[Rfam]
RNA: U5 spliceosomal RNA
Organism: Brugia malayi
RNA sequence: UUUGUCUUGCUCUCCUGCAUUUGACCGAGAAAAUCUUUCGCCUUUUACUAAAGAUUUCCGUGCAGGAGAGUAUUUAUGAUUGUUAACAUAUUUUUUGGAAGCCCUUUAAGGGGCU
Dot-bracket structure: ...(((..(((((((((((...........((((((((...........))))))))...)))))))))))......)))..................(.(((((....))))))